[Rfam]
Nucleotides: 086
Base pairs, nucleotide, nucleotide: 001025002024003023007020008019052075053074054073055072056071057070058069059068
Number, partner (000 for none) and nucleotide at each position: 001025c002024a003023g004000a005000a006000c007020g008019g009000u010000u011000g012000a013000u014000u015000c016000g017000u018000c019008c020007c021000g022000g023003c024002u025001g026000a027000u028000g029000a030000g031000c032000g033000a034000g035000u036000g037000c038000g039000u040000a041000u042000a043000c044000a045000u046000c047000g048000g049000a050000a051000a052075c053074g054073g055072a056071a057070u058069u059068u060000g061000a062000g063000a064000u065000a066000c067000a068059a069058a070057a071056u072055u073054c074053c075052g076000a077000a078000u079000g080000g081000c082000g083000g084000a085000g086000c
A member of the RNA family "RAGATH-28 RNA", 86 nucleotides long. It is annotated as a small RNA. It is one of the family's seed sequences.